[Rfam]
RNA sequence: GUUAGUCCCGCAGGAGGAUGGUCAUCCAAGGUAAGUGCGGACAAAGUCCGCCGCCAUCCUCCUCCUACCAAAAGGUAGGUUUUGCGGGACAGGAGGU
Numbered sequence: 001g002u003u004a005g006u007c008c009c010g011c012a013g014g015a016g017g018a019u020g021g022u023c024a025u026c027c028a029a030g031g032u033a034a035g036u037g038c039g040g041a042c043a044a045a046g047u048c049c050g051c052c053g054c055c056a057u058c059c060u061c062c063u064c065c066u067a068c069c070a071a072a073a074g075g076u077a078g079g080u081u082u083u084g085c086g087g088g089a090c091a092g093g094a095g096g097u
Stems, first nucleotide, its partner, number of pairs: 005090009014061009035052001037051005064079005

Rfam assigns this 97-nucleotide RNA to the family "DUF1874 RNA". It is one of the family's seed sequences.